About this RNA
U7 small nuclear RNA: a 62-nucleotide sequence from Molossus molossus. NCBI's taxonomy places the organism under Eukaryota, Metazoa, Bilateria, Vertebrata, Molossus. The family's consensus secondary structure was predicted with PFOLD. From the family's description: Animal histone pre-mRNAs are spliced by a different mechanism than nuclear pre-mRNAs and self-splicing introns.
RNA sequence: AAGUGCUUACAGCUCUUUUGAAUUUGUCUAGUAGGUCUUCCAGUUUUUACUGGAAGGCCCUA
Numbered sequence: 001a002a003g004u005g006c007u008u009a010c011a012g013c014u015c016u017u018u019u020g021a022a023u024u025u026g027u028c029u030a031g032u033a034g035g036u037c038u039u040c041c042a043g044u045u046u047u048u049a050c051u052g053g054a055a056g057g058c059c060c061u062a
Base pairs, nucleotide, nucleotide: 034059035058036057037056038055039054040053041052042051043050044049